[Rfam]
RNA sequence: UUGCGCCUGCGGCGGGUCAGGCACGGUUCACAAGCGACGCAUUUUGUUCGGGCUUCGCAGGCAGCCGAACCGUGUACGGUCUGGUAGAAUUCCGUAAUUUACGGAAUUUAACGUAUUCGC
Numbered sequence: 001u002u003g004c005g006c007c008u009g010c011g012g013c014g015g016g017u018c019a020g021g022c023a024c025g026g027u028u029c030a031c032a033a034g035c036g037a038c039g040c041a042u043u044u045u046g047u048u049c050g051g052g053c054u055u056c057g058c059a060g061g062c063a064g065c066c067g068a069a070c071c072g073u074g075u076a077c078g079g080u081c082u083g084g085u086a087g088a089a090u091u092c093c094g095u096a097a098u099u100u101a102c103g104g105a106a107u108u109u110a111a112c113g114u115a116u117u118c119g120c
Base pairs, nucleotide, nucleotide: 005062006061007060008059009058010057011056013083014082015081017079018078021075022074023073024072025071026070027069028068051066052065053064054063090106091105092104093103094102095101
Shown here is a 120-nucleotide RNA sequence, a member of the family "RT-5 RNA".
The base pairs follow the family's consensus structure, which is taken from published work.